[Rfam]
Record summary
The record is a 68-nucleotide RNA sequence from Trifolium pratense, which matches "mir-2 microRNA precursor family" in Rfam. The literature on the family includes a 2001 paper in Science by Lee and Ambros, "An extensive class of small RNAs in Caenorhabditis elegans". Lineage of the source: Eukaryota > Streptophytina > Spermatophyta > rosids > Trifolium. The match comes from Rfam's covariance-model search (46 bits). Rfam 15.1 lists 918 matches to the family in 280 species.

RNA sequence: GUACUUUUCAAAGUGGCUGUUGUAUGUACCGUGUUGAUUCAUAUCACAGCCAGCUUUGAGAGUUACUG
Number, nucleotide and partner (000 for none) at each position: 001g000002u000003a000004c000005u062006u061007u060008u059009c058010a057011a056012a055013g054014u052015g051016g050017c049018u048019g047020u046021u000022g044023u000024a000025u043026g042027u041028a000029c000030c000031g000032u000033g000034u000035u000036g000037a000038u000039u000040c000041a027042u026043a025044u022045c000046a020047c019048a018049g017050c016051c015052a014053g000054c013055u012056u011057u010058g009059a008060g007061a006062g005063u000064u000065a000066c000067u000068g000